A member of the RNA family "Lysine riboswitch aptamer" from Ruminococcaceae bacterium BL-6, 175 nucleotides long. The family has 47 seed sequences and 3,224 matches in Rfam 15.1. The organism belongs to Oscillospiraceae, within Bacteria.
[Rfam]
RNA sequence: AUAAAAGAUAGAGGCGCGUCUUUAAACAGUAGCAGGAUGAAGGUUGCCGCAACCGUUGAGAGCUUGUGAAAGGUAAAGUCGCCGAAGGGAAUGCCUGGCAAGCGUUUACCUGGUCAUAAGCUGCGAACAGCAGUAUGACUGUCAUCAUACAAUGUGAUGGAGUGCUAUCUGAUGA
Numbered sequence: 001a002u003a004a005a006a007g008a009u010a011g012a013g014g015c016g017c018g019u020c021u022u023u024a025a026a027c028a029g030u031a032g033c034a035g036g037a038u039g040a041a042g043g044u045u046g047c048c049g050c051a052a053c054c055g056u057u058g059a060g061a062g063c064u065u066g067u068g069a070a071a072g073g074u075a076a077a078g079u080c081g082c083c084g085a086a087g088g089g090a091a092u093g094c095c096u097g098g099c100a101a102g103c104g105u106u107u108a109c110c111u112g113g114u115c116a117u118a119a120g121c122u123g124c125g126a127a128c129a130g131c132a133g134u135a136u137g138a139c140u141g142u143c144a145u146c147a148u149a150c151a152a153u154g155u156g157a158u159g160g161a162g163u164g165c166u167a168u169c170u171g172a173u174g175a
Stems, first nucleotide, its partner, number of pairs: 006170006016082003020078005032067005038061001086111003089107006112140007121133004142160007